[Rfam]
RNA sequence: CCCCCAUGAUGAGUUGCCAUGCUAAUACUGAGUCACCAAUCAGGGCAGUAUUGUUCUGGGCUGGGUACCAGUGAAUGUAACAACACUUCUCCCGUGGAAACCUGAGGGGC
Dot-bracket structure: ((((....................................(((((........)))))...............................................)))).
This 110-nucleotide RNA from Vombatus ursinus belongs to the Rfam family "Small nucleolar RNA U6-53/MBII-28". Pairs were carried over by alignment from the consensus structure. A search with the family's covariance model found it, with a score of 106 bits. On this family, see Huttenhofer et al., EMBO J 2001: "RNomics: an experimental approach that identifies 201 candidates for novel, small, non-messenger RNAs in mouse".